[Rfam]
RNA sequence: CCUUUGCUUUAACAUGGAGGUACCUGCUGCUUAUAAAAGUAAGUGCUUCCAUGUUUCAGUGGCGG
Dot-bracket structure: ((..((((..(((((((((((((.((((.........)))).)))))))))))))..))))..))

mir-302 microRNA precursor family: a 65-nucleotide RNA sequence from Setophaga kirtlandii. Its family is annotated with RISC complex and miRNA-mediated post-transcriptional gene silencing in the Gene Ontology. Taxonomically the source falls in Setophaga (Eukaryota, Opisthokonta, Bilateria, Archelosauria). It scores 72 bits against the family's covariance model.